This 83-nucleotide RNA sequence from Rhodopseudomonas faecalis belongs to the Rfam family "Bradyrhizobiaceae sRNA BjrC68".
Taxonomically the source falls in Rhodopseudomonas (Bacteria, Pseudomonadati, Alphaproteobacteria, Nitrobacteraceae).
For this family Rfam cites "Small RNAs of the Bradyrhizobium/Rhodopseudomonas lineage and their analysis" (Madhugiri et al., RNA Biol, 2012).
RNA sequence: CGGUAGCUCCGGAUCGGACAACGACCCGGCAAACGUCCAACCCGGAGCAGGGCUCCAGCGCAAGCUGGGGCCCUUUUUCUUGU
Numbered sequence: 001c002g003g004u005a006g007c008u009c010c011g012g013a014u015c016g017g018a019c020a021a022c023g024a025c026c027c028g029g030c031a032a033a034c035g036u037c038c039a040a041c042c043c044g045g046a047g048c049a050g051g052g053c054u055c056c057a058g059c060g061c062a063a064g065c066u067g068g069g070g071c072c073c074u075u076u077u078u079c080u081u082g083u
Base pairs, nucleotide, nucleotide: 010044011043012042014040016038017037018036049074050073051072052071053070054069055068056067058065059064

The base pairs follow the family's consensus structure.